Rfam assigns this 75-nucleotide RNA sequence from Marinactinospora thermotolerans to the family "ASpks TB sRNA". Rfam classes the family as an antisense RNA. The organism belongs to Marinactinospora thermotolerans, within Bacteria. The literature on the family includes a 2009 paper in Mol Microbiol by Arnvig and Young, "Identification of small RNAs in Mycobacterium tuberculosis".

RNA sequence: CUUGAUCGAACCGAGCCACAGGGGUUCCGCGCCGUCUCGGUCACGCCCGUAGGUGGCCAGUAGCGCCUGCGCCUC
Numbered sequence: 001c002u003u004g005a006u007c008g009a010a011c012c013g014a015g016c017c018a019c020a021g022g023g024g025u026u027c028c029g030c031g032c033c034g035u036c037u038c039g040g041u042c043a044c045g046c047c048c049g050u051a052g053g054u055g056g057c058c059a060g061u062a063g064c065g066c067c068u069g070c071g072c073c074u075c
Base pairs, nucleotide, nucleotide: 014026015025016024017023033069038065039064045058047056048055049054